[Rfam]
RNA sequence: GGCCUGUGAUGAUCAAAUUUGUCCGUACCAUCUGAGAUGCUCUUCCACGGAAGAUCGUCUUUGAUGUAUAUCUUUCGCCUUUUCUGAGGCCU
Numbered sequence: 001g002g003c004c005u006g007u008g009a010u011g012a013u014c015a016a017a018u019u020u021g022u023c024c025g026u027a028c029c030a031u032c033u034g035a036g037a038u039g040c041u042c043u044u045c046c047a048c049g050g051a052a053g054a055u056c057g058u059c060u061u062u063g064a065u066g067u068a069u070a071u072c073u074u075u076c077g078c079c080u081u082u083u084c085u086g087a088g089g090c091c092u
Base pairs, nucleotide, nucleotide: 001091002090003089004088

Rfam assigns this 92-nucleotide sequence from Morella rubra to the family "small nucleolar RNA snoR117". The family has 6 seed sequences and 419 matches in Rfam 15.1. The match comes from Rfam's covariance-model search (60 bits). Lineage of the source: Eukaryota > Embryophyta > Spermatophyta > eudicotyledons > Morella.